[Rfam]
Rfam assigns this 81-nucleotide RNA from Paenibacillus contaminans to the family "ZMP/ZTP riboswitch aptamer (pfl RNA motif)".
RNA sequence: UCUUGUAUGCGCAACUGACGUAAACGUGGAUAAUCACGAGGGAGUGUAUAUGACAAAGCGCCGUACGCCAGGGCAAAGUAU
Numbered sequence: 001u002c003u004u005g006u007a008u009g010c011g012c013a014a015c016u017g018a019c020g021u022a023a024a025c026g027u028g029g030a031u032a033a034u035c036a037c038g039a040g041g042g043a044g045u046g047u048a049u050a051u052g053a054c055a056a057a058g059c060g061c062c063g064u065a066c067g068c069c070a071g072g073g074c075a076a077a078g079u080a081u
Base pairs, nucleotide, nucleotide: 003053004052005051006050007049008048009047010046011045012044015041016040017069019067020066021065026037027036028035029034060074061073062072
Lineage of the source: Bacteria > Bacillati > Caryophanales > Paenibacillaceae > Paenibacillus. A reference for the family is Jones and Ferre-D'Amare (2015), "Recognition of the bacterial alarmone ZMP through long-distance association of two RNA subdomains", Nat Struct Mol Biol.